[Rfam]
RNA: SAH (S-adenosyl-L-homocysteine) riboswitch aptamer
Organism: Stenotrophomonas tumulicola
RNA sequence: CCCGCCGAGGGGCGCUGCGACCGGAGACCCCGGCCAGGCUCGGAGGGUGGCAAUGUAAAACGGCGCCCGGCUAGA
Numbered sequence: 001c002c003c004g005c006c007g008a009g010g011g012g013c014g015c016u017g018c019g020a021c022c023g024g025a026g027a028c029c030c031c032g033g034c035c036a037g038g039c040u041c042g043g044a045g046g047g048u049g050g051c052a053a054u055g056u057a058a059a060a061c062g063g064c065g066c067c068c069g070g071c072u073a074g075a
Base pairs, nucleotide, nucleotide: 002046003045005043006042007041008040021033022032023031024030